Overview:
A member of the RNA family "S15-Flavobacteria ribosomal protein leader" from Constantimarinum furrinae, 67 nucleotides long. The literature on the family includes a 2020 paper in BMC Microbiol by Eckert and Weinberg, "Discovery of 20 novel ribosomal leader candidates in bacteria and archaea". Pairs were carried over by alignment from the consensus structure, which is taken from published work. Clan: Ribosomal Protein S15 Leader clan. The source organism's lineage runs through Bacteria, Pseudomonadati, Bacteroidota, Flavobacteriaceae and Constantimarinum.
[Rfam]
RNA sequence: UAAUUUUGCAGCUUGAUUAUCAAAGAGGUAGUCAGUACAUAAAAAUCAUUUAAGUAAUAUUGGCAUG
Numbered sequence: 001u002a003a004u005u006u007u008g009c010a011g012c013u014u015g016a017u018u019a020u021c022a023a024a025g026a027g028g029u030a031g032u033c034a035g036u037a038c039a040u041a042a043a044a045a046u047c048a049u050u051u052a053a054g055u056a057a058u059a060u061u062g063g064c065a066u067g
Stems, first nucleotide, its partner, number of pairs: 014034006